[Rfam]
Nucleotides: 072
Base pairs, nucleotide, nucleotide: 002071004069005068006067007066009064010063011062012061013060014059016057017056021052022051024049028047029046030045031044
Number, partner (000 for none) and nucleotide at each position: 001000u002071a003000c004069c005068c006067u007066u008000g009064g010063g011062a012061a013060u014059c015000a016057a017056g018000a019000g020000u021052g022051g023000u024049u025000c026000u027000g028047g029046c030045c031044a032000g033000u034000u035000u036000u037000u038000u039000a040000a041000a042000c043000a044031u045030g046029g047028c048000g049024a050000c051022c052021c053000a054000u055000c056017c057016u058000u059014g060013g061012u062011u063010u064009c065000u066007g067006a068005g069004g070000u071002u072000c